[Rfam]
RNA sequence: GCUGGCAAUGAUGACACACUUGCCCUCGCCGAGAGCAGCGCUCGCUGAGGGGAGCAGCUCUGUGUGCUCAGUGCAGCUGAGCCAGC
Number, nucleotide and partner (000 for none) at each position: 001g086002c085003u084004g083005g082006c081007a000008a000009u000010g000011a000012u000013g000014a000015c000016a000017c000018a000019c000020u000021u000022g000023c000024c000025c000026u000027c000028g000029c000030c000031g000032a000033g000034a000035g000036c000037a000038g000039c000040g000041c000042u000043c000044g000045c000046u000047g000048a000049g000050g000051g000052g000053a000054g000055c000056a000057g000058c000059u000060c000061u000062g000063u000064g000065u000066g000067c000068u000069c000070a000071g000072u000073g000074c000075a000076g000077c000078u000079g000080a000081g006082c005083c004084a003085g002086c001